The record is a 136-nucleotide RNA from Penelope pileata, which matches "Small nucleolar RNA SNORA29" in Rfam. A search with the family's covariance model found it, with a score of 103 bits. The family's consensus secondary structure was predicted with PFOLD. The family has 26 seed sequences and 960 matches in Rfam 15.1. NCBI's taxonomy places the organism under Eukaryota, Dipnotetrapodomorpha, Saurischia, Theropoda, Penelope. Rfam describes the family as follows. ACA29 is a member of the H/ACA class of snoRNA that guide the sites of modification of uridines to pseudouridines. A reference for the family is Huttenhofer et al. (2001), "RNomics: an experimental approach that identifies 201 candidates for novel, small, non-messenger RNAs in mouse", EMBO J.
[Rfam]
RNA sequence: CUUCCCAUUACACUACCGCUUUGUCAGUAUCCAGAUGAAGUGGCUAUGCUUGUGGGAGAGAGGAACCUUGCCACGGUCUGAAGGAAAAGGUUGGAUCGUAUCUUUUUCCUAUAUGAAGUUGGCAGAACAUCGUAUG
Numbered sequence: 001c002u003u004c005c006c007a008u009u010a011c012a013c014u015a016c017c018g019c020u021u022u023g024u025c026a027g028u029a030u031c032c033a034g035a036u037g038a039a040g041u042g043g044c045u046a047u048g049c050u051u052g053u054g055g056g057a058g059a060g061a062g063g064a065a066c067c068u069u070g071c072c073a074c075g076g077u078c079u080g081a082a083g084g085a086a087a088a089g090g091u092u093g094g095a096u097c098g099u100a101u102c103u104u105u106u107u108c109c110u111a112u113a114u115g116a117a118g119u120u121g122g123c124a125g126a127a128c129a130u131c132g133u134a135u136g
Base pairs, nucleotide, nucleotide: 004056005055006054007053016043017042018041019040070123071122072121073120088110089109090108